RNA sequence: ACUGGAAGCUGCUGGGACCACUCAUGGGCAAAAGUCAUGUGUUUUUGUCCUCUGUUGCAGUCUUCCUAGAGCAAAGUGGAGGUCUCUGUCUGCUUUAGGAGAGCCAACUAAGCCAGAUCGUUCCCCUCCAUACAUG
Numbered sequence: 001a002c003u004g005g006a007a008g009c010u011g012c013u014g015g016g017a018c019c020a021c022u023c024a025u026g027g028g029c030a031a032a033a034g035u036c037a038u039g040u041g042u043u044u045u046u047g048u049c050c051u052c053u054g055u056u057g058c059a060g061u062c063u064u065c066c067u068a069g070a071g072c073a074a075a076g077u078g079g080a081g082g083u084c085u086c087u088g089u090c091u092g093c094u095u096u097a098g099g100a101g102a103g104c105c106a107a108c109u110a111a112g113c114c115a116g117a118u119c120g121u122u123c124c125c126c127u128c129c130a131u132a133c134a135u136g
Stems, first nucleotide, its partner, number of pairs: 004066003008061005026050004034044001036041001078129005086120001088118003092114001094112005
The family of this 136-nucleotide sequence from Chaetura pelagica is "Small Cajal body specific RNA 3".
Rfam 15.1 lists 642 matches to the family in 535 species.
By type it is a small Cajal body RNA.
Rfam's curators write: scaRNAs are a specific class of small nuclear RNAs which localise to the Cajal bodies and guide the modification of RNA polymerase II transcribed spliceosomal RNAs U1, U2, U4, U5 and U12.
Lineage of the source: Eukaryota > Bilateria > Dinosauria > Saurischia > Chaetura.
Its Rfam clan is "SCARNA3 clan".
The literature on the family includes a 2002 paper in EMBO J by Darzacq et al., "Cajal body-specific small nuclear RNAs: a novel class of 2'-O-methylation and pseudouridylation guide RNAs".